A member of the RNA family "Small nucleolar RNA SNORD19" from Erpetoichthys calabaricus, 77 nucleotides long. A reference for the family is Huttenhofer et al. (2001), "RNomics: an experimental approach that identifies 201 candidates for novel, small, non-messenger RNAs in mouse", EMBO J. Pairs were carried over by alignment from the consensus structure. Rfam classes the family as a C/D-box small nucleolar RNA. The match comes from Rfam's covariance-model search (48 bits). NCBI's taxonomy places the organism under Eukaryota, Deuterostomia, Euteleostomi, Cladistia, Erpetoichthys.
[Rfam]
RNA sequence: GAGAUAUGAGGAGAAUCCUGUAGAAUCUUGAAUUCUGUUUUGAAGACUUCAUAUCCAACUCUGAUCUCAUUAAAGUA
Numbered sequence: 001g002a003g004a005u006a007u008g009a010g011g012a013g014a015a016u017c018c019u020g021u022a023g024a025a026u027c028u029u030g031a032a033u034u035c036u037g038u039u040u041u042g043a044a045g046a047c048u049u050c051a052u053a054u055c056c057a058a059c060u061c062u063g064a065u066c067u068c069a070u071u072a073a074a075g076u077a
Stems, first nucleotide, its partner, number of pairs: 001068004
Dot-bracket structure: ((((............................................................)))).........